[Rfam]
RNA sequence: GUAGUUGAAUUUCCAAGUUUUUGGAAUGUUCCAAAUUC
Numbered sequence: 001g002u003a004g005u006u007g008a009a010u011u012u013c014c015a016a017g018u019u020u021u022u023g024g025a026a027u028g029u030u031c032c033a034a035a036u037u038c
Stems, first nucleotide, its partner, number of pairs: 003018001005016003020035006

The family of this 38-nucleotide RNA from Abrus precatorius is "Plastid psbT antisense RNA".
The organism belongs to Abrus, within Eukaryota.
Pairs were carried over by alignment from the consensus structure, which was predicted with LocARNA.
The match comes from Rfam's covariance-model search (54 bits).
Plastid-psbT-asRNA is an antisense RNA (asRNA) motif reported in Plastids It has been shown that psbT expression is controlled by two antisense RNAs originated from psbN transcription by the nuclear-encoded polymerase (NEP), in which the short antisense RNA hybridizes to psbT CDS, thereby stabilizing psbT transcript while blocking its translation during photooxidative stress.